[Rfam]
RNA sequence: UAGCGCGUCAUCUGGGGAGUAGCCAGCCGUUCCGCGCCAUGCGAACGGGUCAUGCGUCAACAUAUUUGGUCGAGAGGCCAUGGCGUAUGGGAUGCGGCGCGAAGCCGUAUC
Number, nucleotide and partner (000 for none) at each position: 001u000002a000003g000004c000005g000006c000007g000008u000009c000010a000011u000012c000013u000014g000015g000016g000017g000018a000019g000020u000021a000022g000023c000024c000025a000026g000027c048028c047029g046030u045031u044032c000033c000034g000035c000036g000037c000038c000039a000040u000041g000042c000043g000044a031045a030046c029047g028048g027049g000050u090051c089052a088053u087054g086055c085056g084057u083058c082059a081060a000061c000062a000063u000064a000065u000066u000067u080068g079069g078070u077071c076072g000073a000074g000075a000076g071077g070078c069079c068080a067081u059082g058083g057084c056085g055086u054087a053088u052089g051090g050091g000092a000093u000094g000095c000096g000097g000098c000099g000100c000101g000102a000103a000104g000105c000106c000107g000108u000109a000110u000111c000